[Rfam]
RNA sequence: GGUAAUCUAAGAUGAACGUCAACUUGAAUAUGUCCAACCUACUUUAAUAAUUAGGGAAUUCAAUGGUGUGCGGCUGCCGGGCCAGCUACUGCGUGGAGGGCAAAAACAGAUCUCAGGAUACCCACCUGCCGGGUGCAGGUUUGGACAUAUAAAGGAACGGCAUUUUGGAUUGACA
Numbered sequence: 001g002g003u004a005a006u007c008u009a010a011g012a013u014g015a016a017c018g019u020c021a022a023c024u025u026g027a028a029u030a031u032g033u034c035c036a037a038c039c040u041a042c043u044u045u046a047a048u049a050a051u052u053a054g055g056g057a058a059u060u061c062a063a064u065g066g067u068g069u070g071c072g073g074c075u076g077c078c079g080g081g082c083c084a085g086c087u088a089c090u091g092c093g094u095g096g097a098g099g100g101c102a103a104a105a106a107c108a109g110a111u112c113u114c115a116g117g118a119u120a121c122c123c124a125c126c127u128g129c130c131g132g133g134u135g136c137a138g139g140u141u142u143g144g145a146c147a148u149a150u151a152a153a154g155g156a157a158c159g160g161c162a163u164u165u166u167g168g169a170u171u172g173a174c175a
Stems, first nucleotide, its partner, number of pairs: 003172012017159003031147007038139002054123003058119004065112003069108002077100002082096003085092001
RNA: 6S / SsrS RNA
Organism: Sporomusa termitida